[Rfam]
RNA sequence: AGAAAUCCCACAGGGGCGACCUGAGAACACACAUAAACACAAACACUCCCACCACACCACAUGUAUAGGCAUUAGGCAAUGCGUUGCAUGUGAUCUCAUGUCGCCCCUGCGGGACUUCU
Numbered sequence: 001a002g003a004a005a006u007c008c009c010a011c012a013g014g015g016g017c018g019a020c021c022u023g024a025g026a027a028c029a030c031a032c033a034u035a036a037a038c039a040c041a042a043a044c045a046c047u048c049c050c051a052c053c054a055c056a057c058c059a060c061a062u063g064u065a066u067a068g069g070c071a072u073u074a075g076g077c078a079a080u081g082c083g084u085u086g087c088a089u090g091u092g093a094u095c096u097c098a099u100g101u102c103g104c105c106c107c108u109g110c111g112g113g114a115c116u117u118c119u
Stems, first nucleotide, its partner, number of pairs: 007113002011109004016104004023097004028092004
The family of this 119-nucleotide sequence from Citrus sinensis is "MIR398 microRNA precursor family".
The source organism's lineage runs through Eukaryota, Streptophytina, Embryophyta, Spermatophyta and Citrus.
A reference for the family is Sunkar and Zhu (2004), "Novel and stress-regulated microRNAs and other small RNAs from Arabidopsis", Plant Cell.